[Rfam]
RNA: RtT RNA
Organism: Klebsiella pneumoniae
RNA sequence: CGCCUUUUUGCUUUGCGCCGAACUCAACGAUUCGAACCUGCAGCAGGUUCGGGUCGAACGCAGUGAGACAACGGAGCCGCUUGCGGCGACGGCCCGAAGGGCGAGGCGAAGCCGAGUCAUCCUGCACGACCCACCA
Numbered sequence: 001c002g003c004c005u006u007u008u009u010g011c012u013u014u015g016c017g018c019c020g021a022a023c024u025c026a027a028c029g030a031u032u033c034g035a036a037c038c039u040g041c042a043g044c045a046g047g048u049u050c051g052g053g054u055c056g057a058a059c060g061c062a063g064u065g066a067g068a069c070a071a072c073g074g075a076g077c078c079g080c081u082u083g084c085g086g087c088g089a090c091g092g093c094c095c096g097a098a099g100g101g102c103g104a105g106g107c108g109a110a111g112c113c114g115a116g117u118c119a120u121c122c123u124g125c126a127c128g129a130c131c132c133a134c135c136a
Stems, first nucleotide, its partner, number of pairs: 015127001017125002020122001033103002037100001048098004055065002072091002078088003